[Rfam]
RNA sequence: AUCUCCUGAGGAUCUUGUUAAAAUGCAGAUUCUGAUUCAGGAAGUCAGUGGUGAGUCCUGGGACUCUGCAUUUAUAACAAGCUCCCAGGUGAUAUUGA
Numbered sequence: 001a002u003c004u005c006c007u008g009a010g011g012a013u014c015u016u017g018u019u020a021a022a023a024u025g026c027a028g029a030u031u032c033u034g035a036u037u038c039a040g041g042a043a044g045u046c047a048g049u050g051g052u053g054a055g056u057c058c059u060g061g062g063a064c065u066c067u068g069c070a071u072u073u074a075u076a077a078c079a080a081g082c083u084c085c086c087a088g089g090u091g092a093u094a095u096u097g098a
Base pairs, nucleotide, nucleotide: 003091005089010084011083014081015080016079017078018077019076020075021073022072023071025069026068027067028066029065031063032062033061
RNA: mir-544 microRNA precursor family